This 145-nucleotide RNA sequence from Arabis alpina belongs to the Rfam family "Small nucleolar RNA snoR2/U65". The source organism's lineage runs through Eukaryota, Spermatophyta, Magnoliopsida, Pentapetalae and Arabis. A search with the family's covariance model found it, with a score of 116 bits. The base pairs follow the family's consensus structure, which was predicted with WAR.
[Rfam]
RNA sequence: UGUUCGAUGCCACGUCGAAGAUAGCCUAGCUAUGAUCUUUGAUGCUACAUUGGACAUAAACAAAUGUUUGUGUUUCGCUUUUCUGAUAGGAACCUGUAGAUCUUGAAUUUUGUGAUCUUACAGAGCCAAUUUGGUGAUUACAGUU
Number, nucleotide and partner (000 for none) at each position: 001u000002g055003u054004u053005c052006g051007a050008u049009g048010c000011c000012a000013c044014g043015u042016c041017g040018a039019a000020g037021a036022u035023a000024g030025c029026c000027u000028a000029g025030c024031u000032a000033u000034g000035a022036u021037c020038u000039u018040u017041g016042a015043u014044g013045c000046u000047a000048c009049a008050u007051u006052g005053g004054a003055c002056a000057u000058a000059a000060a000061c000062a000063a000064a000065u000066g000067u000068u000069u000070g000071u000072g000073u000074u000075u137076c136077g135078c134079u133080u000081u000082u000083c000084u000085g000086a000087u000088a000089g127090g126091a000092a000093c000094c123095u122096g121097u000098a118099g117100a116101u115102c114103u000104u000105g000106a000107a000108u000109u000110u000111u000112g000113u000114g102115a101116u100117c099118u098119u000120a000121c096122a095123g094124a000125g000126c090127c089128a000129a000130u000131u000132u000133g079134g078135u077136g076137a075138u000139u000140a000141c000142a000143g000144u000145u000